[Rfam]
RNA sequence: CCCCUUGGCUGAGUUAGUGAUCGGCUAAGGUUUAUUAUUUAUUUUUUGGAGACAAACAUGUCACUAAGCGUUGAAGCAAAAGCUAAAAUCGUUGCUGAAUUUGCCCGUUGUGAA
Numbered sequence: 001c002c003c004c005u006u007g008g009c010u011g012a013g014u015u016a017g018u019g020a021u022c023g024g025c026u027a028a029g030g031u032u033u034a035u036u037a038u039u040u041a042u043u044u045u046u047u048g049g050a051g052a053c054a055a056a057c058a059u060g061u062c063a064c065u066a067a068g069c070g071u072u073g074a075a076g077c078a079a080a081a082g083c084u085a086a087a088a089u090c091g092u093u094g095c096u097g098a099a100u101u102u103g104c105c106c107g108u109u110g111u112g113a114a
Stems, first nucleotide, its partner, number of pairs: 007026006045068005051062001
Rfam assigns this 114-nucleotide sequence from Shewanella sp. SNU WT4 to the family "Ribosomal S15 leader". The source organism's lineage runs through Bacteria, Gammaproteobacteria, Alteromonadales, Shewanellaceae and Shewanella. By type it is a cis-regulatory leader. The family is grouped with related families in Rfam's "Ribosomal Protein S15 Leader clan". The family's consensus secondary structure is taken from published work. Its family is annotated with regulation of translation, ncRNA-mediated in the Gene Ontology. From the family's description: The E. coli Ribosomal S15 gene 5' UTR can form two alternative structures. One that is a series of three hairpins, The other includes a pseudoknot.